[Rfam]
RNA sequence: GUCAGCAGUGCCUUAGCAGCACGUAAAUAUUGGCGUUAAAAUUCUAAAAUUAUCUCCAGUAUUAACUGUGCUGCUGAAGUAAGGUUGGC
Numbered sequence: 001g002u003c004a005g006c007a008g009u010g011c012c013u014u015a016g017c018a019g020c021a022c023g024u025a026a027a028u029a030u031u032g033g034c035g036u037u038a039a040a041a042u043u044c045u046a047a048a049a050u051u052a053u054c055u056c057c058a059g060u061a062u063u064a065a066c067u068g069u070g071c072u073g074c075u076g077a078a079g080u081a082a083g084g085u086u087g088g089c
Stems, first nucleotide, its partner, number of pairs: 001089006013077011024065001026063008035054001
Dot-bracket structure: ((((((......((((((((((((.((((((((.(..................).)))))))).).)))))))))))......))))))